[Rfam]
RNA sequence: GAUUGAAGGUCCCAGCAGAGGCUUGAUCUGAAAAUAUGAGAGCUCUCUAACAUUGUAACCUUCAUAAAUAAAUUAAGCCAUGUCGUACGAUGCUUGAAUUUUGCUUUGUAUUUCACAGCAUCUCAUACCAUGGCUACAGAGAU
Numbered sequence: 001g002a003u004u005g006a007a008g009g010u011c012c013c014a015g016c017a018g019a020g021g022c023u024u025g026a027u028c029u030g031a032a033a034a035u036a037u038g039a040g041a042g043c044u045c046u047c048u049a050a051c052a053u054u055g056u057a058a059c060c061u062u063c064a065u066a067a068a069u070a071a072a073u074u075a076a077g078c079c080a081u082g083u084c085g086u087a088c089g090a091u092g093c094u095u096g097a098a099u100u101u102u103g104c105u106u107u108g109u110a111u112u113u114c115a116c117a118g119c120a121u122c123u124c125a126u127a128c129c130a131u132g133g134c135u136a137c138a139g140a141g142a143u
Stems, first nucleotide, its partner, number of pairs: 004064006011020001013018001025047002028040002031037001077134006089122002092119003095115004

Rfam assigns this 143-nucleotide RNA from Setaria italica to the family "Small nucleolar RNA snoR145". It scores 58 bits against the family's covariance model. The source organism's lineage runs through Eukaryota, Magnoliopsida, Mesangiospermae, Poaceae and Setaria. For this family Rfam cites "Mining small RNA sequencing data: a new approach to identify small nucleolar RNAs in Arabidopsis" (Chen and Wu, Nucleic Acids Res, 2009). The family's RNA type in Rfam is H/ACA-box small nucleolar RNA.